[Rfam]
Nucleotides: 349
Stems, first nucleotide, its partner, number of pairs: 040051004055185005065178002067174004079163002083160003089105005106145007186201003192211002195209003315330004321346006
Number, partner (000 for none) and nucleotide at each position: 001000c002000c003000g004000c005000u006000u007000g008000c009000a010000a011000c012000c013000g014000g015000c016000g017000c018000g019000u020000c021000c022000c023000g024000c025000a026000c027000u028000u029000a030000c031000c032000u033000u034000c035000a036000g037000g038000a039000u040051g041050u042049c043048c044000u045000u046000c047000g048043g049042g050041a051040c052000u053000a054000u055185g056184g057183a058182c059181a060000u061000a062000a063000a064000c065178g066177c067174g068173c069172u070171c071000g072000u073000a074000a075000u076000a077000a078000g079163c080162g081000g082000a083160u084159c085158g086000g087000a088000c089105c090104c091103g092102g093101g094000g095000g096000c097000g098000g099000u100000a101093c102092c103091c104090g105089g106145c107144g108143g109142c110141u111140c112139c113000a114000c115000c116000a117000a118000c119000a120000u121000c122000c123000u124000u125000c126000g127000u128000u129000u130000g131000g132000g133000g134000a135000a136000c137000a138000u139112g140111g141110g142109g143108c144107c145106g146000a147000a148000a149000c150000a151000g152000g153000a154000u155000c156000g157000a158085c159084g160083a161000a162080c163079g164000u165000c166000u167000a168000a169000a170000g171070g172069g173068g174067u175000u176000a177066g178065c179000u180000u181059u182058g183057u184056c185055u186201c187200g188199g189000c190000g191000g192211u193210c194000u195209g196208c197207c198000a199188c200187c201186g202000u203000u204000a205000c206000c207197g208196g209195c210193g211192a212000a213000a214000a215000c216000a217000g218000u219000a220000c221000a222000a223000u224000u225000g226000c227000a228000a229000a230000c231000g232000a233000c234000a235000a236000u237000c238000g239000u240000g241000c242000u243000c244000c245000g246000g247000u248000u249000g250000c251000u252000c253000u254000g255000g256000c257000u258000g259000c260000g261000u262000a263000a264000g265000c266000a267000g268000u269000u270000a271000g272000a273000a274000a275000a276000a277000c278000c279000g280000a281000a282000a283000u284000c285000u286000u287000a288000a289000g290000c291000c292000c293000u294000g295000g296000g297000c298000c299000c300000u301000a302000g303000c304000c305000g306000g307000u308000c309000c310000a311000g312000g313000c314000g315330g316329g317328g318327u319000u320000c321346g322345c323344a324343g325342g326341c327318a328317c329316c330315u331000g332000g333000c334000a335000a336000c337000a338000g339000a340000a341326g342325c343324c344323u345322g346321c347000a348000c349000c